[Rfam]
RNA sequence: AAAGCAGGCUGCAAUUACAGUGCUUCAUUCUGUGGGAGUACUGCCAUUUUCCUGCUGAGAGUAACUCUGUUAACGCUGUCUUCGGUUUCACCUGUACGGUGGUGAAACAGCUUGUUCGUAACAUGUACAAGU
Numbered sequence: 001a002a003a004g005c006a007g008g009c010u011g012c013a014a015u016u017a018c019a020g021u022g023c024u025u026c027a028u029u030c031u032g033u034g035g036g037a038g039u040a041c042u043g044c045c046a047u048u049u050u051c052c053u054g055c056u057g058a059g060a061g062u063a064a065c066u067c068u069g070u071u072a073a074c075g076c077u078g079u080c081u082u083c084g085g086u087u088u089c090a091c092c093u094g095u096a097c098g099g100u101g102g103u104g105a106a107a108c109a110g111c112u113u114g115u116u117c118g119u120a121a122c123a124u125g126u127a128c129a130a131g132u
Stems, first nucleotide, its partner, number of pairs: 003056006018043009068123004073119003083110001085108008
Dot-bracket structure: ..((((((.........(((((((((........))))))))).......))))))...........((((.(((.......(.((((((((........)))))))).)......))))))).........

Overview: Shown here is a 132-nucleotide RNA sequence from Lophotis ruficrista, a member of the family "Small nucleolar RNA SNORA69". The family's consensus secondary structure was predicted with PFOLD. Rfam classes the family as an H/ACA-box small nucleolar RNA. U69 is a member of the H/ACA class of small nucleolar RNAs (snoRNAs) which act as guides in the the modification of uridines to pseudouridines.